[Rfam]
RNA sequence: GCGGUGGCGGUCACCUCCCAGCGGGCGUCCUCGUCCAGGAGCGCGUGCUCGCCGAACUGGUCGCCGUCGGCGAGUACGUCCAGGUCGACCUCGUCGCCGUAACCGCCCUCCGAGGUCUGGCUGAUGCGGCCGUGCGCGAUCAGAUGGAGCUGGUCCGCGGGCGCGCCGCGCUCGACCAGGGUCUCACCCGCACGGAAGUCGCGCUGGACGCACCGUCCCGCGAUGGCGGUGAGGACGUCCACGUCGUCAUAGCCGCGCAGCAGGGCCAGUUCGCCCAGUUCACGGGGGAUCACCCGGACCGUGGCGCCGUCCUGGACGAACUCCACGGUCCCGUCGCCGACGGUGUAGGAGAGGCGGCGGUUCACCCGGUACGCGCCGCCCUUGGUCUCCGCCCAGGGGAGCAUCCGCAGCAGCCAGCGGGAGGUGAUCUCCUGCAUCUGCGGGGCGGACUUGGUGGUGGUGGCGAGGUUGCGGGCGGCCGCCGUACCCAGGCUGGAUUGCCGGGGAGGUUCCAG
Number, nucleotide and partner (000 for none) at each position: 001g000002c000003g393004g392005u391006g390007g389008c000009g387010g000011u385012c384013a383014c000015c000016u000017c000018c328019c327020a000021g000022c000023g324024g323025g322026c000027g000028u319029c318030c000031u000032c000033g000034u316035c315036c314037a313038g312039g311040a310041g000042c000043g000044c000045g307046u306047g305048c304049u000050c303051g302052c301053c000054g236055a000056a000057c233058u232059g000060g000061u000062c231063g230064c229065c228066g227067u226068c112069g111070g110071c000072g000073a000074g000075u000076a000077c000078g106079u000080c105081c000082a000083g000084g000085u000086c099087g098088a000089c096090c000091u000092c000093g000094u000095c000096g089097c000098c087099g086100u000101a000102a000103c000104c000105g080106c078107c000108c000109u000110c070111c069112g068113a000114g000115g000116u000117c000118u000119g000120g000121c000122u223123g000124a000125u220126g219127c000128g000129g216130c215131c000132g213133u212134g209135c000136g000137c206138g205139a000140u000141c000142a000143g000144a000145u000146g000147g202148a000149g000150c000151u000152g000153g193154u000155c000156c000157g191158c190159g189160g188161g187162c000163g185164c181165g000166c000167c000168g177169c000170g000171c000172u000173c000174g000175a000176c000177c168178a000179g000180g000181g164182u000183c000184u000185c163186a000187c161188c160189c159190g158191c157192a000193c153194g000195g000196a000197a000198g000199u000200c000201g000202c147203g000204c000205u138206g137207g000208a000209c134210g000211c000212a133213c132214c000215g130216u129217c000218c000219c126220g125221c000222g000223a122224u000225g000226g067227c066228g065229g064230u063231g062232a058233g057234g000235a000236c054237g299238u298239c297240c296241a000242c000243g293244u292245c000246g290247u289248c288249a000250u000251a000252g000253c285254c284255g283256c000257g281258c000259a280260g279261c278262a000263g274264g000265g272266c000267c000268a000269g000270u000271u000272c265273g000274c263275c000276c000277a000278g261279u260280u259281c257282a000283c255284g254285g253286g000287g000288g248289a247290u246291c000292a244293c243294c000295c000296g240297g239298a238299c237300c000301g052302u051303g050304g048305c047306g046307c045308c000309g000310u040311c039312c038313u037314g036315g035316a034317c000318g029319a028320a000321c000322u025323c024324c023325a000326c000327g019328g018329u000330c000331c000332c345333g344334u343335c342336g000337c000338c000339g000340a000341c000342g335343g334344u333345g332346u000347a000348g000349g000350a000351g000352a000353g000354g382355c000356g380357g379358c378359g377360g376361u000362u000363c375364a000365c373366c000367c000368g000369g000370u000371a000372c000373g365374c000375g363376c360377c359378g358379c357380c356381c000382u354383u013384g012385g011386u000387c009388u000389c007390c006391g005392c004393c003394c434395a433396g432397g431398g430399g429400a428401g000402c426403a425404u424405c000406c421407g000408c419409a000410g418411c000412a000413g000414c000415c000416a000417g000418c410419g408420g000421g406422a000423g000424g404425u403426g402427a000428u400429c399430u398431c397432c396433u395434g394435c000436a000437u000438c000439u000440g479441c478442g000443g476444g000445g000446c473447g472448g000449a470450c468451u467452u466453g000454g464455u463456g000457g000458u000459g000460g000461u000462g000463g455464c454465g000466a452467g451468g450469u000470u449471g000472c447473g446474g000475g000476c443477g000478g441479c440480c000481g513482c000483c509484g000485u507486a000487c505488c504489c503490a000491g501492g000493c000494u000495g000496g000497a000498u000499u000500g000501c491502c000503g489504g488505g487506g000507a485508g000509g483510u000511u000512c000513c481514a000515g000
This 515-nucleotide RNA from Streptomyces formicae belongs to the Rfam family "Saccharopolyspora sRNA 350". For this family Rfam cites "Prediction and characterization of small non-coding RNAs related to secondary metabolites in Saccharopolyspora erythraea" (Liu et al., PLoS One, 2013). Rfam 15.1 lists 1,170 matches to the family in 705 species. Gene Ontology term of the family: regulation of secondary metabolite biosynthetic process. It is annotated as an antisense RNA. The family's consensus secondary structure was predicted with RNAfold.